The record is a 47-nucleotide RNA from Endozoicomonas numazuensis, which matches "Guanidine-II riboswitch aptamer (mini-ykkC)" in Rfam. From the family's description: Simpler in structure and has fewer highly conserved nucleotide positions than the ykkC-yxkD leader. Despite this each of its two stem-loop structures directly bind free guanidine. Therefore, mini-ykkC RNA motif represents a distinct class of guanidine-sensing RNAs. Its crystal structure was also determined. The source organism's lineage runs through Bacteria, Pseudomonadati, Pseudomonadota, Oceanospirillales and Endozoicomonas. A search with the family's covariance model found it, with a score of 42 bits.
[Rfam]
RNA sequence: AUGUAAGGACGACCUUACCUUUCCACCUUCCAACGGGGACGACCUCG
Numbered sequence: 001a002u003g004u005a006a007g008g009a010c011g012a013c014c015u016u017a018c019c020u021u022u023c024c025a026c027c028u029u030c031c032a033a034c035g036g037g038g039a040c041g042a043c044c045u046c047g
Stems, first nucleotide, its partner, number of pairs: 001020001003018006034047005